RNA sequence: AGCCUAGCAAUGGGCAAAGAGACACCUCAUUGGUGGUGUUGCUUUUAUAUCAGUUAGGGACAGAGCAGAUGGACAGUCCUUUGUUUAUCCUAGCUUGAUGCCUGGGUUGGUGGCCAGAGCUGCUUCAUGCCCAGGGCACAUGA
Numbered sequence: 001a002g003c004c005u006a007g008c009a010a011u012g013g014g015c016a017a018a019g020a021g022a023c024a025c026c027u028c029a030u031u032g033g034u035g036g037u038g039u040u041g042c043u044u045u046u047a048u049a050u051c052a053g054u055u056a057g058g059g060a061c062a063g064a065g066c067a068g069a070u071g072g073a074c075a076g077u078c079c080u081u082u083g084u085u086u087a088u089c090c091u092a093g094c095u096u097g098a099u100g101c102c103u104g105g106g107u108u109g110g111u112g113g114c115c116a117g118a119g120c121u122g123c124u125u126c127a128u129g130c131c132c133a134g135g136g137c138a139c140a141u142g143a
Stems, first nucleotide, its partner, number of pairs: 003058004011052003017046003021040006082138005097131001099129001103127003108122002111119001
RNA: Small nucleolar RNA SNORA48
Organism: Carlito syrichta